[Rfam]
RNA sequence: UCCCGAUGAUGAGUUACCAUGCUAAUACUGAAACACCAGGUAGGGCAGAAUUGCCCUGGUUUGGGUGCCAGUGAAUUUAACAAAAGUUCUCACAUGGAGACUUGAGGGAC
Number, nucleotide and partner (000 for none) at each position: 001u109002c108003c107004c106005g000006a000007u000008g000009a000010u000011g000012a000013g000014u000015u000016a000017c000018c000019a000020u000021g000022c000023u000024a000025a000026u000027a000028c000029u000030g000031a000032a000033a000034c000035a000036c000037c000038a000039g000040g000041u058042a057043g056044g055045g054046c000047a000048g000049a000050a000051u000052u000053g000054c045055c044056c043057u042058g041059g000060u000061u000062u000063g000064g000065g000066u000067g000068c000069c000070a000071g000072u000073g000074a000075a000076u000077u000078u000079a000080a000081c000082a000083a000084a000085a000086g000087u000088u000089c000090u000091c000092a000093c000094a000095u000096g000097g000098a000099g000100a000101c000102u000103u000104g000105a000106g004107g003108g002109a001110c000
RNA: Small nucleolar RNA U6-53/MBII-28
Organism: Chinchilla lanigera